[Rfam]
RNA sequence: GGCAGGUUGCCCGAGCGGCCAAAGGGAGCGGUCUGUAAAACCGUCGGCUCAGCCUACGAUGGUUCGAAUCCAUCACCUGCCA
Numbered sequence: 001g002g003c004a005g006g007u008u009g010c011c012c013g014a015g016c017g018g019c020c021a022a023a024g025g026g027a028g029c030g031g032u033c034u035g036u037a038a039a040a041c042c043g044u045c046g047g048c049u050c051a052g053c054c055u056a057c058g059a060u061g062g063u064u065c066g067a068a069u070c071c072a073u074c075a076c077c078u079g080c081c082a
Stems, first nucleotide, its partner, number of pairs: 001081007010026003028044005058074005